[Rfam]
RNA sequence: AAAGAGGGCUUCUCUUGUGAGUGGAAUACAUAGGGUGACUUAAUUGCUCUUCUUGAGGAGUUCAUGAGAUUCCAGAAGCAUCAUUUUUAGGUUAUUUGUGUAUUUGGUGACAGCUGACCCUGGCCACUC
Numbered sequence: 001a002a003a004g005a006g007g008g009c010u011u012c013u014c015u016u017g018u019g020a021g022u023g024g025a026a027u028a029c030a031u032a033g034g035g036u037g038a039c040u041u042a043a044u045u046g047c048u049c050u051u052c053u054u055g056a057g058g059a060g061u062u063c064a065u066g067a068g069a070u071u072c073c074a075g076a077a078g079c080a081u082c083a084u085u086u087u088u089a090g091g092u093u094a095u096u097u098g099u100g101u102a103u104u105u106g107g108u109g110a111c112a113g114c115u116g117a118c119c120c121u122g123g124c125c126a127c128u129c
Base pairs, nucleotide, nucleotide: 008079009078010077011076012075013026015024016023017022027055028054032050033049034048035047036046037045038044057073058072059071060070061069062068098127099126100125103123104122106120107119109118111116
RNA: U11 spliceosomal RNA